The family of this 133-nucleotide sequence from Ovis aries is "Small Cajal body specific RNA 11".
For this family Rfam cites "Cajal body-specific small nuclear RNAs: a novel class of 2'-O-methylation and pseudouridylation guide RNAs" (Darzacq et al., EMBO J, 2002).
A search with the family's covariance model found it, with a score of 62 bits.
By type it is a small Cajal body RNA.
Taxonomically the source falls in Ovis (Eukaryota, Opisthokonta, Tetrapoda, Eutheria).
About the family: scaRNAs are a specific class of small nuclear RNAs which localise to the Cajal bodies and guide the modification of RNA polymerase II transcribed spliceosomal RNAs U1, U2, U4, U5 and U12.
Its family is annotated with nucleolus, Cajal body and RNA processing in the Gene Ontology.

RNA sequence: UGAUCCUGGCUUAUGCUUUCUCUGCUUCCCUGUGCUCAGUUUUAACCUGGGAGGCUGUCAGGAUACACAGCAGUCUCCCUGUCAGUAGUUUAGGAGGGCUGUCCUAAGAAUAGGGCUGCUGUGAGGGGACAGU
Number, nucleotide and partner (000 for none) at each position: 001u000002g000003a064004u063005c062006c061007u060008g059009g000010c000011u057012u000013a000014u000015g000016c000017u000018u000019u000020c000021u000022c000023u000024g000025c053026u052027u000028c050029c049030c000031u000032g046033u045034g000035c000036u000037c000038a000039g000040u000041u000042u000043u000044a000045a033046c032047c000048u000049g029050g028051g000052a026053g025054g000055c000056u000057g011058u000059c008060a007061g006062g005063a004064u003065a000066c000067a000068c000069a000070g000071c000072a000073g000074u000075c000076u000077c000078c000079c132080u131081g130082u129083c128084a000085g000086u000087a000088g000089u126090u125091u124092a000093g000094g000095a122096g000097g120098g119099c118100u000101g116102u115103c114104c113105u112106a111107a000108g000109a000110a000111u106112a105113g104114g103115g102116c101117u000118g099119c098120u097121g000122u095123g000124a091125g090126g089127g000128g083129a082130c081131a080132g079133u000